The record is a 103-nucleotide RNA sequence from Megasphaera sp. AM44-1BH, which matches "SAM riboswitch aptamer (S box leader)" in Rfam. Clan: SAM clan. NCBI's taxonomy places the organism under Bacteria, Bacillati, Bacillota, Veillonellales, Megasphaera.
[Rfam]
RNA sequence: GUUCCAUCAAGAGACGGCGGAGGGACUGGCCCUGUGAUGCCGCAGCAACCUUCAUCUAUUGAAAGGUGCUAAAUCCAACAGUGUAUAUACUGGCAGAUGGGUA
Numbered sequence: 001g002u003u004c005c006a007u008c009a010a011g012a013g014a015c016g017g018c019g020g021a022g023g024g025a026c027u028g029g030c031c032c033u034g035u036g037a038u039g040c041c042g043c044a045g046c047a048a049c050c051u052u053c054a055u056c057u058a059u060u061g062a063a064a065g066g067u068g069c070u071a072a073a074u075c076c077a078a079c080a081g082u083g084u085a086u087a088u089a090c091u092g093g094c095a096g097a098u099g100g101g102u103a
Stems, first nucleotide, its partner, number of pairs: 003101006013043001015042004022032003027077003044070004049066002051063004074095001079092005